Shown here is a 171-nucleotide RNA from Azospirillum thermophilum, a member of the family "Group II catalytic intron D1-D4-3". Taxonomically the source falls in Azospirillum (Bacteria, Pseudomonadati, Pseudomonadota, Rhodospirillales).
RNA sequence: GGAAGGGCAACCGACCGUGGGAAGGAAGCGUGGAUCGCAGCUGCGGGCCGAUGAACAAGAACCGGAUAUGAGGCGGUGCCGACCAGGGCGAGCGGGCAUGGAACCGCGAAGCUCUUGUGACCAAGGGUCGGUGGCGUAAAUCCGGCGGUCGUGCAGCGAAGGAACGCGUUC
Numbered sequence: 001g002g003a004a005g006g007g008c009a010a011c012c013g014a015c016c017g018u019g020g021g022a023a024g025g026a027a028g029c030g031u032g033g034a035u036c037g038c039a040g041c042u043g044c045g046g047g048c049c050g051a052u053g054a055a056c057a058a059g060a061a062c063c064g065g066a067u068a069u070g071a072g073g074c075g076g077u078g079c080c081g082a083c084c085a086g087g088g089c090g091a092g093c094g095g096g097c098a099u100g101g102a103a104c105c106g107c108g109a110a111g112c113u114c115u116u117g118u119g120a121c122c123a124a125g126g127g128u129c130g131g132u133g134g135c136g137u138a139a140a141u142c143c144g145g146c147g148g149u150c151g152u153g154c155a156g157c158g159a160a161g162g163a164a165c166g167c168g169u170u171c
Stems, first nucleotide, its partner, number of pairs: 001016002005012002028171001030169003035163002040157006046150005062145006073137003077133001079130001081128001083126001086114004092107004